ctgf/hcs24 CAESAR: a 72-nucleotide RNA sequence from Rhipidura dahli.
[Rfam]
RNA sequence: AUGGAGACAUGGCAUAAAGCCAGAAGGAGGCCUAAGUAGAUUCUCAACUUGAACUGAUUUGCAUCUCAUUUU
Numbered sequence: 001a002u003g004g005a006g007a008c009a010u011g012g013c014a015u016a017a018a019g020c021c022a023g024a025a026g027g028a029g030g031c032c033u034a035a036g037u038a039g040a041u042u043c044u045c046a047a048c049u050u051g052a053a054c055u056g057a058u059u060u061g062c063a064u065c066u067c068a069u070u071u072u
Base pairs, nucleotide, nucleotide: 004067005066006065007064010022011021012020013019023062025060026059
Dot-bracket structure: ...((((..((((.....))))(.((................................)).).)))).....
Record summary
A reference for the family is Kubota et al. (1999), "Involvement of cis-acting repressive element(s) in the 3'-untranslated region of human connective tissue growth factor gene", FEBS Lett. Gene Ontology term of the family: negative regulation of gene expression. The base pairs follow the family's consensus structure, which is taken from published work. Lineage of the source: Eukaryota > Sarcopterygii > Sauria > Rhipiduridae > Rhipidura. The 3' UTR of human connective tissue growth factor/hypertrophic chondrocyte specific 24 (ctgf/hcs24) mRNA has been shown to repress ctgf gene expression. Reference identified a minimal RNA element, predicted to form a stable secondary structure, which acts as a post-transcriptional cis-acting element of structure-anchored repression (CAESAR), probably through direct interactions with as yet unknown nuclear factors.